RNA: Purine riboswitch aptamer
Organism: Paenibacillus albiflavus
RNA sequence: GAUUAUAACAAAGCUUGUUUUCGUAUAAUCAUGGGAAUUGGCCCAAGAGUCUCUACGGAUCACCGCAAAUGGUCUGGCUACGAAAAAAUCAAGGUACAUG
Numbered sequence: 001g002a003u004u005a006u007a008a009c010a011a012a013g014c015u016u017g018u019u020u021u022c023g024u025a026u027a028a029u030c031a032u033g034g035g036a037a038u039u040g041g042c043c044c045a046a047g048a049g050u051c052u053c054u055a056c057g058g059a060u061c062a063c064c065g066c067a068a069a070u071g072g073u074c075u076g077g078c079u080a081c082g083a084a085a086a087a088a089u090c091a092a093g094g095u096a097c098a099u100g
Stems, first nucleotide, its partner, number of pairs: 018086008029048002032045004056076007